[Rfam]
RNA sequence: AAGCACGAUGAUGUUUACUCAUCUUUCGGGUCUGACAGCAACUGAAGACAGCAAACAAUACUGAGUGCUU
Numbered sequence: 001a002a003g004c005a006c007g008a009u010g011a012u013g014u015u016u017a018c019u020c021a022u023c024u025u026u027c028g029g030g031u032c033u034g035a036c037a038g039c040a041a042c043u044g045a046a047g048a049c050a051g052c053a054a055a056c057a058a059u060a061c062u063g064a065g066u067g068c069u070u
Stems, first nucleotide, its partner, number of pairs: 001070006

A member of the RNA family "Small nucleolar RNA SNORD2" from Gongylonema pulchrum, 70 nucleotides long.
The match comes from Rfam's covariance-model search (45 bits).
NCBI's taxonomy places the organism under Eukaryota, Metazoa, Rhabditida, Spiruroidea, Gongylonema.
Gene Ontology terms of the family: nucleolus and RNA processing.